[Rfam]
RNA sequence: AUCGCUUCUCGGCCUAUUUGGCUAAGAUCAAUGUAGUAUCUGUUCUUAUCAGUUUAAUAUCUCUGAUACGUCCCCCAGCGGGGGACUACAUAUUAAGCGGCUUUUUAGAACAGGGAGUCGGCAAAGGAGCUUGCUCCAUCCGCUCCACGCAUCGACCCCAGUAUUGCAGUGCCUCUGGGAGCGGUGCACUUUCU
Numbered sequence: 001a002u003c004g005c006u007u008c009u010c011g012g013c014c015u016a017u018u019u020g021g022c023u024a025a026g027a028u029c030a031a032u033g034u035a036g037u038a039u040c041u042g043u044u045c046u047u048a049u050c051a052g053u054u055u056a057a058u059a060u061c062u063c064u065g066a067u068a069c070g071u072c073c074c075c076c077a078g079c080g081g082g083g084g085a086c087u088a089c090a091u092a093u094u095a096a097g098c099g100g101c102u103u104u105u106u107a108g109a110a111c112a113g114g115g116a117g118u119c120g121g122c123a124a125a126g127g128a129g130c131u132u133g134c135u136c137c138a139u140c141c142g143c144u145c146c147a148c149g150c151a152u153c154g155a156c157c158c159c160a161g162u163a164u165u166g167c168a169g170u171g172c173c174u175c176u177g178g179g180a181g182c183g184g185u186g187c188a189c190u191u192u193c194u
Base pairs, nucleotide, nucleotide: 007027008026009025011023012022013021014020047068048067049066050065051064052063070086071085072084073083074082075081076080114146115145116144117143118142120140121139126137127136128135129134149187150186151185152184153183154182157179158178159177160176161175
The family of this 194-nucleotide sequence from Denticeps clupeoides is "U2 spliceosomal RNA".
By type it is a spliceosomal small nuclear RNA.
A search with the family's covariance model found it, with a score of 154 bits.
From the family's description: U2 is a small nuclear RNA (snRNA) component of the spliceosome (involved in pre-mRNA splicing). Complementary binding between U2 snRNA (in an area lying towards the 5' end but 3' to hairpin I) and the branchpoint sequence (BPS) of the intron results the bulging out of an unpaired adenosine, on the BPS, which initiates a nucleophilic attack at the intronic 5' splice site, thus starting the first of two transesterification reactions that mediate splicing.
Its Rfam clan is "U2 clan".